[Rfam]
RNA sequence: AACAACUGAAUAGCAAAGCCAGAGACAGCAGGUGCUUAACGCUUAAUUCCCUGCUUAGGUUUUCGUUUUGUAUUUUCUAAUGUCAAUGUUGCUCCGUUCAACAUGACAUGAGGAUACGGCGCAACCCCGGCUUUUUAACCGGGGUUUUUUGAUCUGGCUU
Numbered sequence: 001a002a003c004a005a006c007u008g009a010a011u012a013g014c015a016a017a018g019c020c021a022g023a024g025a026c027a028g029c030a031g032g033u034g035c036u037u038a039a040c041g042c043u044u045a046a047u048u049c050c051c052u053g054c055u056u057a058g059g060u061u062u063u064c065g066u067u068u069u070g071u072a073u074u075u076u077c078u079a080a081u082g083u084c085a086a087u088g089u090u091g092c093u094c095c096g097u098u099c100a101a102c103a104u105g106a107c108a109u110g111a112g113g114a115u116a117c118g119g120c121g122c123a124a125c126c127c128c129g130g131c132u133u134u135u136u137a138a139c140c141g142g143g144g145u146u147u148u149u150u151g152a153u154c155u156g157g158c159u160u
Base pairs, nucleotide, nucleotide: 028054029053030052031051032050034042035041124145125144126143127142128141129140130139132137

The record is a 160-nucleotide RNA from Stenomitos frigidus, which matches "Ribosomal protein L10 leader" in Rfam. A reference for the family is Zengel and Lindahl (1994), "Diverse mechanisms for regulating ribosomal protein synthesis in Escherichia coli", Prog Nucleic Acid Res Mol Biol. Pairs were carried over by alignment from the consensus structure, which was predicted with CMfinder. It is annotated as a cis-regulatory leader. The match comes from Rfam's covariance-model search (48 bits). Rfam describes the family as follows. This family is a putative r-protein leader autoregulatory structure found in B. subtilis and other low-GC Gram-positive bacteria. Lineage of the source: Bacteria > Bacillati > Cyanophyceae > Stenomitos > Stenomitos frigidus.